[Rfam]
RNA sequence: CCGGAUACCUUGACGGGCCGCACCGAAAAGCGACCCGAUCCCAUCCACCC
Numbered sequence: 001c002c003g004g005a006u007a008c009c010u011u012g013a014c015g016g017g018c019c020g021c022a023c024c025g026a027a028a029a030g031c032g033a034c035c036c037g038a039u040c041c042c043a044u045c046c047a048c049c050c
Stems, first nucleotide, its partner, number of pairs: 002025003013039001014037004019032003

Shown here is a 50-nucleotide sequence from Faecalibacterium prausnitzii, a member of the family "RAGATH-5 RNA". The source organism's lineage runs through Bacteria, Clostridia, Eubacteriales, Faecalibacterium and Faecalibacterium prausnitzii. A reference for the family is Weinberg et al. (2015), "New classes of self-cleaving ribozymes revealed by comparative genomics analysis", Nat Chem Biol. It is annotated as a ribozyme.